Bacterial RNase P class A: a 397-nucleotide RNA sequence from Oleomonas cavernae. About the family: Ribonuclease P (RNase P) is a ubiquitous endoribonuclease, found in archaea, bacteria and eukarya as well as chloroplasts and mitochondria. It is annotated as a ribozyme. The organism belongs to Oleomonas, within Bacteria.

RNA sequence: CCAGAUGGCCGGAUGGCCGCCGCCGCUUGCAAAAGCGGGGGAGGAAAGUCCGGGCUCCACGGAAAUACGGUGCCGGUUAAUGGCCGGCGGGGGCGACCCCAGGGACAGUGCCACAGAGAGCAGACCGCCGCUCCAUCGCUGCAAAGCGGUCGGGCGGUAAGGGUGAAAGGGUGCGGUAAGAGCGCACCGCGCGGCCGGUAACGGUCGUGGCAAGGUAAACCCCACCGGGAGCAAAACCAAAUAGGGGCGACAUGCCGGUGCAAGCCGGCGGGAUCUGUUUCCGGUCCGUCGCCCGGGUCGGUUGCUUGAGGCGGUCGGUAACGAUCGUCCUAGACGAAUGGCCAUCGGCCGCGGGCAACCGCGGUCACAGAACCCGGCUUACAGGCCAUCUGGCAGA
Numbered sequence: 001c002c003a004g005a006u007g008g009c010c011g012g013a014u015g016g017c018c019g020c021c022g023c024c025g026c027u028u029g030c031a032a033a034a035g036c037g038g039g040g041g042a043g044g045a046a047a048g049u050c051c052g053g054g055c056u057c058c059a060c061g062g063a064a065a066u067a068c069g070g071u072g073c074c075g076g077u078u079a080a081u082g083g084c085c086g087g088c089g090g091g092g093g094c095g096a097c098c099c100c101a102g103g104g105a106c107a108g109u110g111c112c113a114c115a116g117a118g119a120g121c122a123g124a125c126c127g128c129c130g131c132u133c134c135a136u137c138g139c140u141g142c143a144a145a146g147c148g149g150u151c152g153g154g155c156g157g158u159a160a161g162g163g164u165g166a167a168a169g170g171g172u173g174c175g176g177u178a179a180g181a182g183c184g185c186a187c188c189g190c191g192c193g194g195c196c197g198g199u200a201a202c203g204g205u206c207g208u209g210g211c212a213a214g215g216u217a218a219a220c221c222c223c224a225c226c227g228g229g230a231g232c233a234a235a236a237c238c239a240a241a242u243a244g245g246g247g248c249g250a251c252a253u254g255c256c257g258g259u260g261c262a263a264g265c266c267g268g269c270g271g272g273a274u275c276u277g278u279u280u281c282c283g284g285u286c287c288g289u290c291g292c293c294c295g296g297g298u299c300g301g302u303u304g305c306u307u308g309a310g311g312c313g314g315u316c317g318g319u320a321a322c323g324a325u326c327g328u329c330c331u332a333g334a335c336g337a338a339u340g341g342c343c344a345u346c347g348g349c350c351g352c353g354g355g356c357a358a359c360c361g362c363g364g365u366c367a368c369a370g371a372a373c374c375c376g377g378c379u380u381a382c383a384g385g386c387c388a389u390c391u392g393g394c395a396g397a
Stems, first nucleotide, its partner, number of pairs: 001393010011382001012346007020041002023038006046380003050377005055231004063280004068227005073087005088102001089100004103222002108220002110216003125162002127158007135150006170188006189211001190209008235303004245294006271287005310329008